Background:
Rfam assigns this 74-nucleotide RNA sequence from Oryzicola mucosus to the family "Makes More Granules Regulator RNA (mmgR)". Rfam's curators write: SuhB later renamed mmgR (makes more granules regulator) was a putative non-coding RNA found multiple times in the Agrobacterium tumefaciens genome and related alpha-proteobacteria. Other non-coding RNAs uncovered in the same analysis include: speF, ybhL, metA, and serC.Several studies inSinorhizobium meliloti showed that suhB element is indeed a non-coding RNA:firstly it was detected on Northern blot and called Sm8RNA, secondly in an RNAseq study referred to as SmelC689.The mutant phenotype's (strain lacking the small RNA) cytoplasm contains higher content of polyhydroxybutyrate (PBH)storage granules than wild type strain. NCBI's taxonomy places the organism under Bacteria, Pseudomonadota, Alphaproteobacteria, Phyllobacteriaceae, Oryzicola. By type it is a small RNA.
RNA sequence: UGUCCGUGCCCUCCUUGGGCGUUUCCUCCCUAGACUUCAGACCGCUCCUCGGAGCGGUCUUUUUUUGCCUGAAA
Number, nucleotide and partner (000 for none) at each position: 001u000002g000003u000004c000005c000006g000007u000008g020009c019010c018011c017012u000013c000014c000015u000016u000017g011018g010019g009020c008021g000022u000023u000024u000025c000026c000027u000028c000029c000030c000031u000032a000033g000034a000035c000036u000037u000038c000039a000040g059041a058042c057043c056044g055045c054046u053047c052048c000049u000050c000051g000052g047053a046054g045055c044056g043057g042058u041059c040060u000061u000062u000063u000064u000065u000066u000067g000068c000069c000070u000071g000072a000073a000074a000